[Rfam]
RNA sequence: GACUUAUAUUCAGUAGCGAGGUUAACCGUAUAGGGGAGCCGUAGAGAAAUCGAGUCUUAAUAGGGCGUUUAGUUGCUGGGUAUAGACCCGAAACCAGGCGAUCUAUCCAUGAGCAGGUUGAAGGUUGGGUAACACUAACUGGAGGACCGAACCCACUGUCGUUGAAAAGCCAGGGGAUGACUUGUGGAUAGGGGUGAAAGGCUAAUCAAGCCUGGUGAUAGCUGGUU
Numbered sequence: 001g002a003c004u005u006a007u008a009u010u011c012a013g014u015a016g017c018g019a020g021g022u023u024a025a026c027c028g029u030a031u032a033g034g035g036g037a038g039c040c041g042u043a044g045a046g047a048a049a050u051c052g053a054g055u056c057u058u059a060a061u062a063g064g065g066c067g068u069u070u071a072g073u074u075g076c077u078g079g080g081u082a083u084a085g086a087c088c089c090g091a092a093a094c095c096a097g098g099c100g101a102u103c104u105a106u107c108c109a110u111g112a113g114c115a116g117g118u119u120g121a122a123g124g125u126u127g128g129g130u131a132a133c134a135c136u137a138a139c140u141g142g143a144g145g146a147c148c149g150a151a152c153c154c155a156c157u158g159u160c161g162u163u164g165a166a167a168a169g170c171c172a173g174g175g176g177a178u179g180a181c182u183u184g185u186g187g188a189u190a191g192g193g194g195u196g197a198a199a200g201g202c203u204a205a206u207c208a209a210g211c212c213u214g215g216u217g218a219u220a221g222c223u224g225g226u227u
Stems, first nucleotide, its partner, number of pairs: 005084013020040004026034002044051002054066004087225002090222001094215006103191011114179001116148004123140006152176003156173003160169001193203003
Dot-bracket structure: ....(((((((((((((..((((..((.....))..))))...((....))..((((.....)))).....)))))))))))))..((.(...((((((...((((((((((((.((((...((((((......))))))....))))...(((.(((.(........).))))))..).))))))))))).(((.....)))......))))))......).))..
RNA: Bacterial large subunit ribosomal RNA, nucleotides 576 to 802